[Rfam]
Shown here is a 94-nucleotide sequence from Nostocoides sp. HKS02, a member of the family "Glycine riboswitch aptamer". Rfam links the family to the GO term glycine biosynthetic process. The base pairs follow the family's consensus structure. It scores 60 bits against the family's covariance model. Taxonomically the source falls in Nostocoides (Bacteria, Actinomycetes, Micrococcales, Intrasporangiaceae).
RNA sequence: CCACCCCGCGUGGGAGAGUCCCCAGGCACUGCCCCGGGGCGCCGAAGGGGCAAACUCCCCGGAACCUCUCAGGCGCCAGGACCACGCGGGACAG
Number, nucleotide and partner (000 for none) at each position: 001c000002c000003a000004c000005c000006c089007c088008g087009c086010g085011u084012g083013g082014g000015a000016g000017a000018g000019u000020c039021c038022c037023c036024a000025g000026g000027c000028a000029c000030u000031g000032c000033c000034c000035c000036g023037g022038g021039g020040c000041g074042c073043c072044g070045a069046a000047g000048g068049g067050g066051c000052a000053a000054a000055c061056u000057c000058c000059c000060c000061g055062g000063a000064a000065c000066c050067u049068c048069u045070c044071a000072g043073g042074c041075g000076c000077c000078a000079g000080g000081a000082c013083c012084a011085c010086g009087c008088g007089g006090g000091a000092c000093a000094g000